[Rfam]
RNA sequence: AGGGGCAGCCCUCCUUGGGCGAUUCCUCCCUGGACUGGCCCCGCCGGCUUCGCGCUGGCGGGGCCUUUUUGCGUUUC
Numbered sequence: 001a002g003g004g005g006c007a008g009c010c011c012u013c014c015u016u017g018g019g020c021g022a023u024u025c026c027u028c029c030c031u032g033g034a035c036u037g038g039c040c041c042c043g044c045c046g047g048c049u050u051c052g053c054g055c056u057g058g059c060g061g062g063g064c065c066u067u068u069u070u071g072c073g074u075u076u077c
Base pairs, nucleotide, nucleotide: 008020009019010018011017039063040062041061042060043059044058045057046056047055048054
This 77-nucleotide RNA from Chelatococcus reniformis belongs to the Rfam family "Makes More Granules Regulator RNA (mmgR)". By type it is a small RNA. For this family Rfam cites "Evidence for a second class of S-adenosylmethionine riboswitches and other regulatory RNA motifs in alpha-proteobacteria" (Corbino et al., Genome Biol, 2005). Clan: suhB sRNA clan.